[Rfam]
RNA sequence: ACUGGAAGGUUGGCAUCUUCUGUAAUCCGGCUACUCGGAGGUUGGGUUGUAGACUGAUUUGAGGCUGGGGGUUCUGUAUACUGGCCAGGCCAUGUUGACGGGACGUCCGCACUAAGCUUAUCAUCAAUAUGGGUACCAUGGAGGAGUCCAAGGUAUUCAGGUUGCCUAAGGAGAGAUGAACCGGGUGAGGGGUGAAAACCAGCAACCAAGAGUCUCCGUGGUAAGCAGUAGUGGGAUAGCGUCCCGGAGUGAACUACCAGUGUCAGCCUAGCUAAUAAGGUCACACUGCAAUCUUU
Numbered sequence: 001a002c003u004g005g006a007a008g009g010u011u012g013g014c015a016u017c018u019u020c021u022g023u024a025a026u027c028c029g030g031c032u033a034c035u036c037g038g039a040g041g042u043u044g045g046g047u048u049g050u051a052g053a054c055u056g057a058u059u060u061g062a063g064g065c066u067g068g069g070g071g072u073u074c075u076g077u078a079u080a081c082u083g084g085c086c087a088g089g090c091c092a093u094g095u096u097g098a099c100g101g102g103a104c105g106u107c108c109g110c111a112c113u114a115a116g117c118u119u120a121u122c123a124u125c126a127a128u129a130u131g132g133g134u135a136c137c138a139u140g141g142a143g144g145a146g147u148c149c150a151a152g153g154u155a156u157u158c159a160g161g162u163u164g165c166c167u168a169a170g171g172a173g174a175g176a177u178g179a180a181c182c183g184g185g186u187g188a189g190g191g192g193u194g195a196a197a198a199c200c201a202g203c204a205a206c207c208a209a210g211a212g213u214c215u216c217c218g219u220g221g222u223a224a225g226c227a228g229u230a231g232u233g234g235g236a237u238a239g240c241g242u243c244c245c246g247g248a249g250u251g252a253a254c255u256a257c258c259a260g261u262g263u264c265a266g267c268c269u270a271g272c273u274a275a276u277a278a279g280g281u282c283a284c285a286c287u288g289c290a291a292u293c294u295u296u
Base pairs, nucleotide, nucleotide: 001042002041003040004021005020006019007018008017009016010015026039027038028037044294045293046292047291048290049289050288051287052286055283056282057281058280059279060278063273064272065271066270067269068268069267074266075265076264078263079262080261081260082259084258087255088254091251092250093249095247099246100245101244102243103242104241105240106239107235108234110233111232112231113230114229116226117225118224119223120222121221122220123219124218125164126163127162128161130159131158132157133156134155135154136153137152139150140149141148142147165171166170173216174215175214176213177212184207185206186205191200192199193198
RNA: Metazoan signal recognition particle RNA
Organism: Pseudolycoriella hygida